[Rfam]
RNA sequence: GGACGAAUCUCUGGAGAGACUCCCUCCUGCCCCGCAAGUGGCGUGGAGGAUACAGAGCACCGAAGGAGCAAAUCUGCGCCAUAGCAGAUAAUCUCUCAGGUAAAAGGACAGAGACAAGCGA
Numbered sequence: 001g002g003a004c005g006a007a008u009c010u011c012u013g014g015a016g017a018g019a020c021u022c023c024c025u026c027c028u029g030c031c032c033c034g035c036a037a038g039u040g041g042c043g044u045g046g047a048g049g050a051u052a053c054a055g056a057g058c059a060c061c062g063a064a065g066g067a068g069c070a071a072a073u074c075u076g077c078g079c080c081a082u083a084g085c086a087g088a089u090a091a092u093c094u095c096u097c098a099g100g101u102a103a104a105a106g107g108a109c110a111g112a113g114a115c116a117a118g119c120g121a
Stems, first nucleotide, its partner, number of pairs: 008114006020057003059101003062097002066095003073088004

A member of the RNA family "Glycine riboswitch aptamer" from Aneurinibacillus soli, 121 nucleotides long.